The record is an 88-nucleotide RNA sequence from Dendrobium nobile, which matches "Small nucleolar RNA J33" in Rfam.
Its family is annotated with RNA processing and nucleolus in the Gene Ontology.
Rfam classes the family as a C/D-box small nucleolar RNA.
The match comes from Rfam's covariance-model search (55 bits).
The organism belongs to Dendrobium, within Eukaryota.
A reference for the family is Chen et al. (2003), "The high diversity of snoRNAs in plants: identification and comparative study of 120 snoRNA genes from Oryza sativa", Nucleic Acids Res.
[Rfam]
RNA sequence: CAGUUAGAGGAAUGAUGUAUUACCAAAGAGCACUUAAGCUUCAAGCUUUUCUAGACAUGGCUUCUGAAAGUGGUAAGAAAAAUAGCUG
Numbered sequence: 001c002a003g004u005u006a007g008a009g010g011a012a013u014g015a016u017g018u019a020u021u022a023c024c025a026a027a028g029a030g031c032a033c034u035u036a037a038g039c040u041u042c043a044a045g046c047u048u049u050u051c052u053a054g055a056c057a058u059g060g061c062u063u064c065u066g067a068a069a070g071u072g073g074u075a076a077g078a079a080a081a082a083u084a085g086c087u088g
Stems, first nucleotide, its partner, number of pairs: 001088006
Dot-bracket structure: ((((((............................................................................))))))